[Rfam]
RNA sequence: UCCUAGCCCUGAUGGGAACGGCAUCCUUUUAUGCCGGGGUUCGGCAUAAAAGAUAUAGUGUACAGCAGGAAAAAGC
Numbered sequence: 001u002c003c004u005a006g007c008c009c010u011g012a013u014g015g016g017a018a019c020g021g022c023a024u025c026c027u028u029u030u031a032u033g034c035c036g037g038g039g040u041u042c043g044g045c046a047u048a049a050a051a052g053a054u055a056u057a058g059u060g061u062a063c064a065g066c067a068g069g070a071a072a073a074a075g076c
Stems, first nucleotide, its partner, number of pairs: 009068003013064002018059002023054003029049008
RNA: Flavo-1 RNA